[Rfam]
RNA sequence: CAUCCCACCCCCGUCGCGCUCCCGCCCGAGCCCCCCGGCCCCGCUUCCGCGGGGCCGGGGGGCUCGGGCGGGAGCGCGACGGGAGGGAAAAUGGGA
Numbered sequence: 001c002a003u004c005c006c007a008c009c010c011c012c013g014u015c016g017c018g019c020u021c022c023c024g025c026c027c028g029a030g031c032c033c034c035c036c037g038g039c040c041c042c043g044c045u046u047c048c049g050c051g052g053g054g055c056c057g058g059g060g061g062g063c064u065c066g067g068g069c070g071g072g073a074g075c076g077c078g079a080c081g082g083g084a085g086g087g088a089a090a091a092u093g094g095g096a
Base pairs, nucleotide, nucleotide: 010083011082012081013080014079015078016077017076018075020073021072022071023070024069025068026067027066028065029064030063031062032061033060034059035058036057037056038055039054040053041052